[Rfam]
RNA sequence: AGGUACCUGUGAUAGGCAAAGCACCAGCUUAGAUAAAAAUCGUGCAGGUGAUGAGUUGGUGUACGGUCUGGUAUGCGUAACACGCAUGUUAAAUGCAUUUU
Numbered sequence: 001a002g003g004u005a006c007c008u009g010u011g012a013u014a015g016g017c018a019a020a021g022c023a024c025c026a027g028c029u030u031a032g033a034u035a036a037a038a039a040u041c042g043u044g045c046a047g048g049u050g051a052u053g054a055g056u057u058g059g060u061g062u063a064c065g066g067u068c069u070g071g072u073a074u075g076c077g078u079a080a081c082a083c084g085c086a087u088g089u090u091a092a093a094u095g096c097a098u099u100u101u
Stems, first nucleotide, its partner, number of pairs: 005049007013070003017066001021062008039052003073087006